[Rfam]
Notes:
The record is a 181-nucleotide RNA from Rostratula benghalensis, which matches "Small nucleolar RNA SNORA81" in Rfam. Pairs were carried over by alignment from the consensus structure, which was predicted with WAR. The family's RNA type in Rfam is H/ACA-box small nucleolar RNA. The organism belongs to Rostratula, within Eukaryota. For this family Rfam cites "A novel experimental approach for systematic identification of box H/ACA snoRNAs from eukaryotes" (Gu et al., Nucleic Acids Res, 2005).
RNA sequence: CCCUUCUUGUGAAAAGCACUGUGCUAAAAUCCCAGGGCCCGGGCUGAGCCCUGGGCUCUGCGAUAAUGCUAGCAGAGUACGUGCAGGAAGAAGAACAACCGCGCGCCGGAUCCAAAGCGACCGGGGUGGACCUCUUUCUUAAUGUCCAGUGUCCUGGGUCGGAAGAUCCGGUGCAACAGCU
Numbered sequence: 001c002c003c004u005u006c007u008u009g010u011g012a013a014a015a016g017c018a019c020u021g022u023g024c025u026a027a028a029a030u031c032c033c034a035g036g037g038c039c040c041g042g043g044c045u046g047a048g049c050c051c052u053g054g055g056c057u058c059u060g061c062g063a064u065a066a067u068g069c070u071a072g073c074a075g076a077g078u079a080c081g082u083g084c085a086g087g088a089a090g091a092a093g094a095a096c097a098a099c100c101g102c103g104c105g106c107c108g109g110a111u112c113c114a115a116a117g118c119g120a121c122c123g124g125g126g127u128g129g130a131c132c133u134c135u136u137u138c139u140u141a142a143u144g145u146c147c148a149g150u151g152u153c154c155u156g157g158g159u160c161g162g163a164a165g166a167u168c169c170g171g172u173g174c175a176a177c178a179g180c181u
Base pairs, nucleotide, nucleotide: 019077020076022074023073024072025071026070029067030066035058036057038055039054040053041051042050043049044048103174104173105172106171107170108169109168110167123152125150127148128147129146130145